[Rfam]
RNA sequence: CUUCUAGUGGGAAGCGAAGACCCUGUGAACCUUUACUGCAGUCUGUCGUUGCUGCGGGGGUCCAAGUGUGAAGUGUAGUUAGGAGACGUUACAGAGACGCAUGCGCUAGCAUGUCGCCCAGUCGACCAUGGGACACUAACCUCUUGGAACCCCGCGGCUUACCUCUACGGAGGGACAGCCGCAGCUGGGCAGUUUAACUGGGGCGGUAUCCAUCUGAUAAUAAAUCAGAUGGGUCCAAAGGUAGGCUCAGUCCGGUCAGAACUCGGACGUAGAGUACAAGGAUAAAAGCCUGCCUGACUGGUUCCUUAUCAGUACGAGAACCAGGCGCGAAAGCGUGGCCUAGCGAACCCCUGUGGCCAAGUAGUGAGGCCCAGGUAUGACAGAAAAGGUACUCCAGGGAUAACUGGAUUGUCUAGGGCGCGAGCUCACAUCGACCCCUAGGCUUGUUACUUCGAUGUCGGCUCUCCGUAUCCUGGCUGUGCAACAGCAGCCAAGGGUGGGGGUGUUCACCCAUUAAAACGGAUCGUGAGCUGGGUUUAGAUCGUCGUGAGACAGAUCUGUUGCUAUCUGCUAGAAGUGUUUU
Numbered sequence: 001c002u003u004c005u006a007g008u009g010g011g012a013a014g015c016g017a018a019g020a021c022c023c024u025g026u027g028a029a030c031c032u033u034u035a036c037u038g039c040a041g042u043c044u045g046u047c048g049u050u051g052c053u054g055c056g057g058g059g060g061u062c063c064a065a066g067u068g069u070g071a072a073g074u075g076u077a078g079u080u081a082g083g084a085g086a087c088g089u090u091a092c093a094g095a096g097a098c099g100c101a102u103g104c105g106c107u108a109g110c111a112u113g114u115c116g117c118c119c120a121g122u123c124g125a126c127c128a129u130g131g132g133a134c135a136c137u138a139a140c141c142u143c144u145u146g147g148a149a150c151c152c153c154g155c156g157g158c159u160u161a162c163c164u165c166u167a168c169g170g171a172g173g174g175a176c177a178g179c180c181g182c183a184g185c186u187g188g189g190c191a192g193u194u195u196a197a198c199u200g201g202g203g204c205g206g207u208a209u210c211c212a213u214c215u216g217a218u219a220a221u222a223a224a225u226c227a228g229a230u231g232g233g234u235c236c237a238a239a240g241g242u243a244g245g246c247u248c249a250g251u252c253c254g255g256u257c258a259g260a261a262c263u264c265g266g267a268c269g270u271a272g273a274g275u276a277c278a279a280g281g282a283u284a285a286a287a288g289c290c291u292g293c294c295u296g297a298c299u300g301g302u303u304c305c306u307u308a309u310c311a312g313u314a315c316g317a318g319a320a321c322c323a324g325g326c327g328c329g330a331a332a333g334c335g336u337g338g339c340c341u342a343g344c345g346a347a348c349c350c351c352u353g354u355g356g357c358c359a360a361g362u363a364g365u366g367a368g369g370c371c372c373a374g375g376u377a378u379g380a381c382a383g384a385a386a387a388g389g390u391a392c393u394c395c396a397g398g399g400a401u402a403a404c405u406g407g408a409u410u411g412u413c414u415a416g417g418g419c420g421c422g423a424g425c426u427c428a429c430a431u432c433g434a435c436c437c438c439u440a441g442g443c444u445u446g447u448u449a450c451u452u453c454g455a456u457g458u459c460g461g462c463u464c465u466c467c468g469u470a471u472c473c474u475g476g477c478u479g480u481g482c483a484a485c486a487g488c489a490g491c492c493a494a495g496g497g498u499g500g501g502g503g504u505g506u507u508c509a510c511c512c513a514u515u516a517a518a519a520c521g522g523a524u525c526g527u528g529a530g531c532u533g534g535g536u537u538u539a540g541a542u543c544g545u546c547g548u549g550a551g552a553c554a555g556a557u558c559u560g561u562u563g564c565u566a567u568c569u570g571c572u573a574g575a576a577g578u579g580u581u582u583u
Stems, first nucleotide, its partner, number of pairs: 001577008010569003014564002022398004027394002029390005035193004043184004048179001051158009061148006068141001078140005085123003100113005162173004196209001197207003210232006235338002241293006247273002250268006274283002298324007306316001326335001328333001350375004355371004407448003411445001412442007422432002459534001460532004464526001465523005472497002476491005500512003540558004544553003
Dot-bracket structure: ((((((((.(((.((......((((.(((((((.((((....((((.(..(((((((((.((((((.(.........(((((..(((............(((((....))))).......)))............)))))).)))))).)))))))))...((((....)))).....).)))).....))))..((((.....))).)((((((...........))))))..((....((((((((.((((((.......))))))...))((......))....))))))....(((((((.(.........).))))))).(.(....).).))...........((((.((((.........))))))))..........)))))..))))))........(((.((((((((...((.......))...)))))))..))))..........(((((((((((..((..(((((......)))))....))..(((.......)))......)))))..)..)))).).....(((((((....))).))))....))..)))))))))))......
Rfam assigns this 583-nucleotide part of an RNA from Nanohaloarchaea archaeon H01 to the family "Archaeal large subunit ribosomal RNA". Taxonomically the source falls in Candidatus Nanohaloarchaea (Archaea, Methanobacteriati, Methanobacteriota).